[Rfam]
The record is a 97-nucleotide RNA from Tersicoccus phoenicis, which matches "Bacterial small signal recognition particle RNA" in Rfam. The family's RNA type in Rfam is non-coding RNA gene. The base pairs follow the family's consensus structure, which is taken from published work. The source organism's lineage runs through Bacteria, Bacillati, Micrococcales, Micrococcaceae and Tersicoccus. Its Rfam clan is "SRP clan". It scores 63 bits against the family's covariance model.
RNA sequence: CGCAGCCCCUCGCGCGGCGUCAUCCUGUUGAACUCCCCCAGGACCGGAAGGUAGCAAGGGUAAACGGGCUCUGGCGGGUGUGCGAGGGGUCUCUACG
Numbered sequence: 001c002g003c004a005g006c007c008c009c010u011c012g013c014g015c016g017g018c019g020u021c022a023u024c025c026u027g028u029u030g031a032a033c034u035c036c037c038c039c040a041g042g043a044c045c046g047g048a049a050g051g052u053a054g055c056a057a058g059g060g061u062a063a064a065c066g067g068g069c070u071c072u073g074g075c076g077g078g079u080g081u082g083c084g085a086g087g088g089g090u091c092u093c094u095a096c097g
Stems, first nucleotide, its partner, number of pairs: 005090010015078001018076005024068006035060003043052003